This 146-nucleotide RNA from Streptosporangium subroseum belongs to the Rfam family "c-di-AMP riboswitch aptamer (ydaO/yuaA leader)". The organism belongs to Streptosporangium, within Bacteria. It scores 88 bits against the family's covariance model.
RNA sequence: UGAGCGCGGCUGCCGAGUCCGUGCGUUCACGGAGCCGGGGACCCAAUCUUCUGGGGUGAAUCGCGGCCCAUUCCACAUGGCGUCGCGUAGGGCACUUCCACGCCCGAACCCGUCAGCUAACCCGGUAGGCGGCAUGGAAGCUAGGA
Numbered sequence: 001u002g003a004g005c006g007c008g009g010c011u012g013c014c015g016a017g018u019c020c021g022u023g024c025g026u027u028c029a030c031g032g033a034g035c036c037g038g039g040g041a042c043c044c045a046a047u048c049u050u051c052u053g054g055g056g057u058g059a060a061u062c063g064c065g066g067c068c069c070a071u072u073c074c075a076c077a078u079g080g081c082g083u084c085g086c087g088u089a090g091g092g093c094a095c096u097u098c099c100a101c102g103c104c105c106g107a108a109c110c111c112g113u114c115a116g117c118u119a120a121c122c123c124g125g126u127a128g129g130c131g132g133c134a135u136g137g138a139a140g141c142u143a144g145g146a
Stems, first nucleotide, its partner, number of pairs: 011131004018033005034126006044053002054111003062087006090105004